[Rfam]
This 62-nucleotide RNA from Austrofundulus limnaeus belongs to the Rfam family "mir-737 microRNA precursor family".
Nucleotides: 062
Stems, first nucleotide, its partner, number of pairs: 004059021
Number, partner (000 for none) and nucleotide at each position: 001000u002000g003000g004059u005058u006057u007056u008055u009054u010053u011052a012051g013050g014049u015048u016047u017046u018045g019044a020043u021042u022041u023040u024039c025000g026000u027000a028000g029000c030000g031000u032000u033000c034000g035000g036000u037000g038000a039024g040023a041022a042021a043020a044019u045018c046017g047016a048015a049014g050013c051012c052011u053010a054009a055008a056007g057006a058005a059004a060000a061000u062000a
Background:
Rfam 15.1 lists 233 matches to the family in 207 species. NCBI's taxonomy places the organism under Eukaryota, Eumetazoa, Chordata, Gnathostomata, Austrofundulus.